[Rfam]
RNA sequence: UGGAGGACUGAGAAAAUAAGGCAUUUUUAUGUAUUGCAUUUAUUGGUUACAACCUCCAAAAUCAAAAUAUUGCAAAAGCAAAUCAUGUUCCUUUGAUUUGUGGAGGAACACUGCUGCUGUUUGCAUACAUCCC
Numbered sequence: 001u002g003g004a005g006g007a008c009u010g011a012g013a014a015a016a017u018a019a020g021g022c023a024u025u026u027u028u029a030u031g032u033a034u035u036g037c038a039u040u041u042a043u044u045g046g047u048u049a050c051a052a053c054c055u056c057c058a059a060a061a062u063c064a065a066a067a068u069a070u071u072g073c074a075a076a077a078g079c080a081a082a083u084c085a086u087g088u089u090c091c092u093u094u095g096a097u098u099u100g101u102g103g104a105g106g107a108a109c110a111c112u113g114c115u116g117c118u119g120u121u122u123g124c125a126u127a128c129a130u131c132c133c
Base pairs, nucleotide, nucleotide: 002057003056004055005054006053015044016043017042018041019039021037022036023035025033078124079123082121085118086116087115094110095109097107098105
Small nucleolar RNA SNORA47: a 133-nucleotide RNA from Phrynocephalus forsythii. The match comes from Rfam's covariance-model search (78 bits). A reference for the family is Huttenhofer et al. (2001), "RNomics: an experimental approach that identifies 201 candidates for novel, small, non-messenger RNAs in mouse", EMBO J. Rfam classes the family as an H/ACA-box small nucleolar RNA. The source organism's lineage runs through Eukaryota, Vertebrata, Gnathostomata, Agamidae and Phrynocephalus.